Rfam assigns this 56-nucleotide RNA sequence from Methylibium petroleiphilum to the family "nhaA-I RNA". It is annotated as a riboswitch. From the family's description: Acidobacteria, Alphaproteobacteria, Betaproteobacteria and Gammaproteobacteria, Verrucomicrobia, cand. division NC10. The family's consensus secondary structure is taken from published work.

RNA sequence: GGGUGUCGGACCGCGAGCGCGGUGCGGCAGGUUCAUGCGAAGGUCGGGCCGCCUCG
Numbered sequence: 001g002g003g004u005g006u007c008g009g010a011c012c013g014c015g016a017g018c019g020c021g022g023u024g025c026g027g028c029a030g031g032u033u034c035a036u037g038c039g040a041a042g043g044u045c046g047g048g049c050c051g052c053c054u055c056g
Stems, first nucleotide, its partner, number of pairs: 005028004010023003038056003042053003